[Rfam]
RNA sequence: AAACGAAAGAGUUUGAUCCUGGCUCAGAUUGAACGCUGGCGGCAUGCUUUACACAUGCAAGUCGAACGGCAGCACGGACUUCGGUCUGGUGGCGAGUGGCGAACGGGUGAGUAAUACAUCGGAACGUACCCAGUAAUGGGGGAUAACUAUCCGAAAGGAUAGCUAAUACCGCAUACGCCCUACGGGGGAAAGAGGGGGAUCGCAAGACCUCUUGUUAUUGGAGCGGCCGAUGGCUGAUUAGCUAGUUGGUGAGGUAAAGGCUCACCAAGGCGACGAUCAGUAGCGGGUCUUAGAGGACGAUCCGCCACACUGGAACUGAGACACGGUCCAGACUCCUACGGGAGGCAGCAGUGGGGAAUCUUGGACAAUGGGCGCAAGCCUGAUCCAGCAAUGCCGCGUGCGUGAAGAAGGCCUUCGGGUUGUAAAGCGCUUUUGUCAGGGAGCAAAAGGUGGUGGCUAAUAUCCAUCGCUCUUGAGAGUACCUGAAGAAUAAGGACCGGCUAACUACGUGCCAGCAGCCGCGGUAAUACGUAGGGUCCAAGCGUUAAUCGGAAUUACUG
Numbered sequence: 001a002a003a004c005g006a007a008a009g010a011g012u013u014u015g016a017u018c019c020u021g022g023c024u025c026a027g028a029u030u031g032a033a034c035g036c037u038g039g040c041g042g043c044a045u046g047c048u049u050u051a052c053a054c055a056u057g058c059a060a061g062u063c064g065a066a067c068g069g070c071a072g073c074a075c076g077g078a079c080u081u082c083g084g085u086c087u088g089g090u091g092g093c094g095a096g097u098g099g100c101g102a103a104c105g106g107g108u109g110a111g112u113a114a115u116a117c118a119u120c121g122g123a124a125c126g127u128a129c130c131c132a133g134u135a136a137u138g139g140g141g142g143a144u145a146a147c148u149a150u151c152c153g154a155a156a157g158g159a160u161a162g163c164u165a166a167u168a169c170c171g172c173a174u175a176c177g178c179c180c181u182a183c184g185g186g187g188g189a190a191a192g193a194g195g196g197g198g199a200u201c202g203c204a205a206g207a208c209c210u211c212u213u214g215u216u217a218u219u220g221g222a223g224c225g226g227c228c229g230a231u232g233g234c235u236g237a238u239u240a241g242c243u244a245g246u247u248g249g250u251g252a253g254g255u256a257a258a259g260g261c262u263c264a265c266c267a268a269g270g271c272g273a274c275g276a277u278c279a280g281u282a283g284c285g286g287g288u289c290u291u292a293g294a295g296g297a298c299g300a301u302c303c304g305c306c307a308c309a310c311u312g313g314a315a316c317u318g319a320g321a322c323a324c325g326g327u328c329c330a331g332a333c334u335c336c337u338a339c340g341g342g343a344g345g346c347a348g349c350a351g352u353g354g355g356g357a358a359u360c361u362u363g364g365a366c367a368a369u370g371g372g373c374g375c376a377a378g379c380c381u382g383a384u385c386c387a388g389c390a391a392u393g394c395c396g397c398g399u400g401c402g403u404g405a406a407g408a409a410g411g412c413c414u415u416c417g418g419g420u421u422g423u424a425a426a427g428c429g430c431u432u433u434u435g436u437c438a439g440g441g442a443g444c445a446a447a448a449g450g451u452g453g454u455g456g457c458u459a460a461u462a463u464c465c466a467u468c469g470c471u472c473u474u475g476a477g478a479g480u481a482c483c484u485g486a487a488g489a490a491u492a493a494g495g496a497c498c499g500g501c502u503a504a505c506u507a508c509g510u511g512c513c514a515g516c517a518g519c520c521g522c523g524g525u526a527a528u529a530c531g532u533a534g535g536g537u538c539c540a541a542g543c544g545u546u547a548a549u550c551g552g553a554a555u556u557a558c559u560g
Stems, first nucleotide, its partner, number of pairs: 009025005027550004032546006039397006045390002047355001052353003056350003061100003066097002069093002075088005107308003117232006125225002130221007138172001140170002147162006178187003192213006234280003241271003246268008283305004287298004310331005333344004361387001363386003369382005400430004410421004436486005444477001450470006494539005505534005515522002

Bacterial small subunit ribosomal RNA: a 560-nucleotide part of an RNA from Chitinibacter fontanus. A reference for the family is Cannone et al. (2002), "The comparative RNA web (CRW) site: an online database of comparative sequence and structure information for ribosomal, intron, and other RNAs", BMC Bioinformatics. Gene Ontology terms of the family: ribosome and structural constituent of ribosome. NCBI's taxonomy places the organism under Bacteria, Pseudomonadati, Neisseriales, Chitinibacteraceae, Chitinibacter.